Rfam assigns this 47-nucleotide RNA from Auraticoccus cholistanensis to the family "Guanidine-II riboswitch aptamer (mini-ykkC)". Rfam links the family to the GO term regulation of gene expression. About the family: Simpler in structure and has fewer highly conserved nucleotide positions than the ykkC-yxkD leader. Despite this each of its two stem-loop structures directly bind free guanidine. NCBI's taxonomy places the organism under Bacteria, Bacillati, Actinomycetota, Actinomycetes, Auraticoccus. The base pairs follow the family's consensus structure, which is taken from published work.

Nucleotides: 047
Base pairs, nucleotide, nucleotide: 001020003018004017005016006015007014008013034047035046036045037044038043
Number, partner (000 for none) and nucleotide at each position: 001020g002000c003018u004017c005016g006015a007014g008013g009000a010000c011000g012000a013008c014007c015006u016005c017004g018003a019000c020001c021000u022000c023000g024000a025000c026000g027000a028000c029000c030000u031000c032000g033000c034047c035046g036045a037044g038043g039000a040000c041000g042000g043038u044037c045036u046035c047034g